[Rfam]
RNA sequence: AAUACCGUGCAAUGCGAAAUUCGUAUAUCCUCAAUAACAUGGUUUGAGGGUCUCUACAAGGAGCCAAAGAAUCCUAACUACGAAUAUAGGAUAAGUGUAG
Numbered sequence: 001a002a003u004a005c006c007g008u009g010c011a012a013u014g015c016g017a018a019a020u021u022c023g024u025a026u027a028u029c030c031u032c033a034a035u036a037a038c039a040u041g042g043u044u045u046g047a048g049g050g051u052c053u054c055u056a057c058a059a060g061g062a063g064c065c066a067a068a069g070a071a072u073c074c075u076a077a078c079u080a081c082g083a084a085u086a087u088a089g090g091a092u093a094a095g096u097g098u099a100g
Base pairs, nucleotide, nucleotide: 019085020084021083022082023081024080025079029049030048031047032046033045034044059075060074061073062072
Purine riboswitch aptamer: a 100-nucleotide RNA from Paenibacillus xerothermodurans.
It scores 60 bits against the family's covariance model.